This 67-nucleotide RNA belongs to the Rfam family "pemK RNA". Rfam's curators put it in the seed alignment. By type it is a cis-regulatory element.
RNA sequence: AUAAUGAUACUUCGGUAAUUCGCCGCUCGGUCACAAUGAAGACGGAGUAUAUCUUAAGAUAUAAUGU
Numbered sequence: 001a002u003a004a005u006g007a008u009a010c011u012u013c014g015g016u017a018a019u020u021c022g023c024c025g026c027u028c029g030g031u032c033a034c035a036a037u038g039a040a041g042a043c044g045g046a047g048u049a050u051a052u053c054u055u056a057a058g059a060u061a062u063a064a065u066g067u
Stems, first nucleotide, its partner, number of pairs: 012064001013025004026047003030043003048063003